[Rfam]
RNA sequence: AAUCUGUCAUGGAUAACCUAGUGGAAGGCCUGCCGCUAAGUCAGUAACCUUGCUGCGGCAUUUGCCAGCGGGAAAGGUGCCCGGUACGAAUCCUGGGGUCGUCGUUGUACUCGUGCGAGUAAUCCACGAUGCUACAAGGCGCUAAGCAAUGGAAGUGAAUCUUGAGGGAAGCAAUUCUGCAGAGACACUUCCACCCUGGGAUGGCGUCGCCGGAGGACACCUACCCGUUACAGGGAAGUUGGCUGUUUGGCUGGACAACCGCAAUCUU
Numbered sequence: 001a002a003u004c005u006g007u008c009a010u011g012g013a014u015a016a017c018c019u020a021g022u023g024g025a026a027g028g029c030c031u032g033c034c035g036c037u038a039a040g041u042c043a044g045u046a047a048c049c050u051u052g053c054u055g056c057g058g059c060a061u062u063u064g065c066c067a068g069c070g071g072g073a074a075a076g077g078u079g080c081c082c083g084g085u086a087c088g089a090a091u092c093c094u095g096g097g098g099u100c101g102u103c104g105u106u107g108u109a110c111u112c113g114u115g116c117g118a119g120u121a122a123u124c125c126a127c128g129a130u131g132c133u134a135c136a137a138g139g140c141g142c143u144a145a146g147c148a149a150u151g152g153a154a155g156u157g158a159a160u161c162u163u164g165a166g167g168g169a170a171g172c173a174a175u176u177c178u179g180c181a182g183a184g185a186c187a188c189u190u191c192c193a194c195c196c197u198g199g200g201a202u203g204g205c206g207u208c209g210c211c212g213g214a215g216g217a218c219a220c221c222u223a224c225c226c227g228u229u230a231c232a233g234g235g236a237a238g239u240u241g242g243c244u245g246u247u248u249g250g251c252u253g254g255a256c257a258a259c260c261g262c263a264a265u266c267u268u
Stems, first nucleotide, its partner, number of pairs: 002014003019264001021262004027256001029254002032251003039244007048234002057066003069227001071225002075222005081213005086207003090202009100141001102139002106136004111129005117124002142146001150193007160185004168177003